[Rfam]
RNA sequence: CAAUAAAAAUUAAAUAGUGUUCAUAUAAUAGCAGAGAUAUGGUCUGCAAGUUUCUACCGGACAGCCGUAAAUUGUCCGACUAUGAGCGAAAGGCGCACAAUG
Dot-bracket structure: .................((((((((...(.(((((.......))))).)........(((((((.......)))))))..))))))))..............
Numbered sequence: 001c002a003a004u005a006a007a008a009a010u011u012a013a014a015u016a017g018u019g020u021u022c023a024u025a026u027a028a029u030a031g032c033a034g035a036g037a038u039a040u041g042g043u044c045u046g047c048a049a050g051u052u053u054c055u056a057c058c059g060g061a062c063a064g065c066c067g068u069a070a071a072u073u074g075u076c077c078g079a080c081u082a083u084g085a086g087c088g089a090a091a092g093g094c095g096c097a098c099a100a101u102g
Stems, first nucleotide, its partner, number of pairs: 018088008029049001031047005058078007